[Rfam]
RNA sequence: CAUUGAUGUGAGGAUUGUUGAUUCGGAAAAUAUUAUGUCGAUUAGAACAAAUUAUUCCAGACUACAAUUAUCUGAUCAAUG
Number, nucleotide and partner (000 for none) at each position: 001c081002a080003u079004u078005g077006a076007u000008g000009u000010g000011a000012g000013g000014a000015u000016u000017g000018u000019u000020g000021a000022u000023u000024c000025g000026g000027a000028a000029a000030a000031u000032a000033u000034u000035a000036u000037g000038u000039c000040g000041a000042u000043u000044a000045g000046a000047a000048c000049a000050a000051a000052u000053u000054a000055u000056u000057c000058c000059a000060g000061a000062c000063u000064a000065c000066a000067a000068u000069u000070a000071u000072c000073u000074g000075a000076u006077c005078a004079a003080u002081g001